A member of the RNA family "Small nucleolar RNA Z279/snoR105/snoR108" from Aegilops tauschii, 106 nucleotides long. Rfam's curators write: This family includes the plant snoRNAs known as Z279, snoR105 and snoR108.
Nucleotides: 106
Base pairs, nucleotide, nucleotide: 001106002105003104004103014097015096016095017094018093023040024039025038026037027036042085043084044083045082046081047080048079049078063077065075
Number, partner (000 for none) and nucleotide at each position: 001106g002105g003104g004103a005000a006000a007000u008000g009000a010000u011000g012000a013000g014097u015096g016095g017094u018093a019000c020000a021000g022000g023040c024039u025038u026037g027036c028000u029000u030000g031000a032000u033000u034000u035000u036027g037026c038025g039024a040023g041000a042085g043084g044083g045082g046081u047080g048079c049078c050000u051000g052000c053000c054000c055000c056000a057000a058000u059000u060000a061000g062000c063077c064000u065075g066000u067000u068000a069000c070000g071000a072000c073000a074000c075065u076000c077063g078049g079048g080047c081046a082045u083044c084043c085042c086000u087000c088000u089000g090000a091000u092000u093018u094017a095016c096015c097014a098000u099000c100000u101000g102000a103004u104003c105002c106001u

Taxonomically the source falls in Aegilops tauschii (Eukaryota, Streptophytina, Tracheophyta, Liliopsida). A search with the family's covariance model found it, with a score of 82 bits. By type it is a C/D-box small nucleolar RNA.